Notes: A member of the RNA family "mir-203 microRNA precursor family" from Mus musculus, 76 nucleotides long.

RNA sequence: GCCUGGUCCAGUGGUUCUUGACAGUUCAACAGUUCUGUAGCACAAUUGUGAAAUGUUUAGGACCACUAGACCCGGC
Numbered sequence: 001g002c003c004u005g006g007u008c009c010a011g012u013g014g015u016u017c018u019u020g021a022c023a024g025u026u027c028a029a030c031a032g033u034u035c036u037g038u039a040g041c042a043c044a045a046u047u048g049u050g051a052a053a054u055g056u057u058u059a060g061g062a063c064c065a066c067u068a069g070a071c072c073c074g075g076c
Base pairs, nucleotide, nucleotide: 010067011066012065013064014063015062017060018059020057021056022055023054025052026051027050028049
Dot-bracket structure: .........((((((.((.((((.((((....................)))).)))).)).)))))).........